Shown here is an 85-nucleotide RNA sequence from Elaeis guineensis, a member of the family "Small nucleolar RNA Z221/R21b". It scores 69 bits against the family's covariance model. Rfam links the family to the GO terms RNA processing and nucleolus. For this family Rfam cites "The high diversity of snoRNAs in plants: identification and comparative study of 120 snoRNA genes from Oryza sativa" (Chen et al., Nucleic Acids Res, 2003). The family has 12 seed sequences and 588 matches in Rfam 15.1. It is annotated as a C/D-box small nucleolar RNA.
RNA sequence: AGGCUGUGAUGAGAGACAAUGUCAUGCACCACUCUGAUUCAAUCAGUGCUGACAAUCGACUUGUAACCGAUAUUUAUCUGAGCCU
Numbered sequence: 001a002g003g004c005u006g007u008g009a010u011g012a013g014a015g016a017c018a019a020u021g022u023c024a025u026g027c028a029c030c031a032c033u034c035u036g037a038u039u040c041a042a043u044c045a046g047u048g049c050u051g052a053c054a055a056u057c058g059a060c061u062u063g064u065a066a067c068c069g070a071u072a073u074u075u076a077u078c079u080g081a082g083c084c085u
Stems, first nucleotide, its partner, number of pairs: 001085004